[Rfam]
Overview:
Shown here is a 457-nucleotide sequence from Sphenodon punctatus, a member of the family "Vertebrate telomerase RNA". The family has 37 seed sequences and 523 matches in Rfam 15.1. It scores 129 bits against the family's covariance model. Rfam classes the family as a non-coding RNA gene. The source organism's lineage runs through Eukaryota, Chordata, Tetrapoda, Lepidosauria and Sphenodon. Rfam describes the family as follows. Telomerase is a ribonucleoprotein reverse transcriptase that synthesises telomeric DNA. Telomerase RNAs differ greatly in sequence and structure between vertebrates, ciliates and yeasts, but they share a 5' pseudoknot structure close to the template sequence. Vertebrate telomerase RNAs have a 3' H/ACA snoRNA-like domain.

RNA sequence: UGCUCGGGCAGCGGGGGUCUCCCUUCGUCUAACCCUAACCGAGCACAGCGCGCCCCUCCGAGCGCCGGCCGCUGUUUUUCUCGCUGGCUUUCAGCGGCCGCGGGGGGCGGGCAUCGCCAACCCCCUUUCUCCCCCCCCCCCCAAAAAAAAUGCCAGCGCAGGGAGGCCCCCUCCGCCUUGCCGGCCCCGCGUUCGCUUCCCCCCGCGGCUCGCAGGGCAAUGGCCUCGGAAGCGCCAGCCGCCGCCCCCGGCGGUUUGGGAGGCCGCGGUCAGCCCGGCUUGCGCCACUGCUGCCGCGAAGGGUUCCGGGCCCUGUCAGCCUAGGCCGGGGCGGCGCGCGGGCGCGGCACGGUCUUGCCCGAGGAGGGGCGGACGCGAGAGCAAAACGCGGGCGGGGUCCGGAGCCACCGCGCGCCCCUGAGCUGUGGGGCGGGCGGCGGGGACCGCUCGGACACUC
Numbered sequence: 001u002g003c004u005c006g007g008g009c010a011g012c013g014g015g016g017g018u019c020u021c022c023c024u025u026c027g028u029c030u031a032a033c034c035c036u037a038a039c040c041g042a043g044c045a046c047a048g049c050g051c052g053c054c055c056c057u058c059c060g061a062g063c064g065c066c067g068g069c070c071g072c073u074g075u076u077u078u079u080c081u082c083g084c085u086g087g088c089u090u091u092c093a094g095c096g097g098c099c100g101c102g103g104g105g106g107g108c109g110g111g112c113a114u115c116g117c118c119a120a121c122c123c124c125c126u127u128u129c130u131c132c133c134c135c136c137c138c139c140c141c142c143a144a145a146a147a148a149a150a151u152g153c154c155a156g157c158g159c160a161g162g163g164a165g166g167c168c169c170c171c172u173c174c175g176c177c178u179u180g181c182c183g184g185c186c187c188c189g190c191g192u193u194c195g196c197u198u199c200c201c202c203c204c205g206c207g208g209c210u211c212g213c214a215g216g217g218c219a220a221u222g223g224c225c226u227c228g229g230a231a232g233c234g235c236c237a238g239c240c241g242c243c244g245c246c247c248c249c250g251g252c253g254g255u256u257u258g259g260g261a262g263g264c265c266g267c268g269g270u271c272a273g274c275c276c277g278g279c280u281u282g283c284g285c286c287a288c289u290g291c292u293g294c295c296g297c298g299a300a301g302g303g304u305u306c307c308g309g310g311c312c313c314u315g316u317c318a319g320c321c322u323a324g325g326c327c328g329g330g331g332c333g334g335c336g337c338g339c340g341g342g343c344g345c346g347g348c349a350c351g352g353u354c355u356u357g358c359c360c361g362a363g364g365a366g367g368g369g370c371g372g373a374c375g376c377g378a379g380a381g382c383a384a385a386a387c388g389c390g391g392g393c394g395g396g397g398u399c400c401g402g403a404g405c406c407a408c409c410g411c412g413c414g415c416c417c418c419u420g421a422g423c424u425g426u427g428g429g430g431c432g433g434g435c436g437g438c439g440g441g442g443a444c445c446g447c448u449c450g451g452a453c454a455c456u457c
Stems, first nucleotide, its partner, number of pairs: 004180001006178004011173001013171005019165005052108005066100009083157006089150003189376007232345005240336007248329005265298005271293004277286003300314004390449004395445001397444003400440001408437004415430004